RNA: GP20-a RNA
RNA sequence: CUAUCCCCAGCGUGUCGGGAUAUAAAUGCACGCCAAGCGACAACCGCAGAGUGGCUGCGGAUAUAUAAAUUAAAUCGCUCGCAAGGAGGGUA
Numbered sequence: 001c002u003a004u005c006c007c008c009a010g011c012g013u014g015u016c017g018g019g020a021u022a023u024a025a026a027u028g029c030a031c032g033c034c035a036a037g038c039g040a041c042a043a044c045c046g047c048a049g050a051g052u053g054g055c056u057g058c059g060g061a062u063a064u065a066u067a068a069a070u071u072a073a074a075u076c077g078c079u080c081g082c083a084a085g086g087a088g089g090g091u092a
Stems, first nucleotide, its partner, number of pairs: 005019003010033005037082004044060005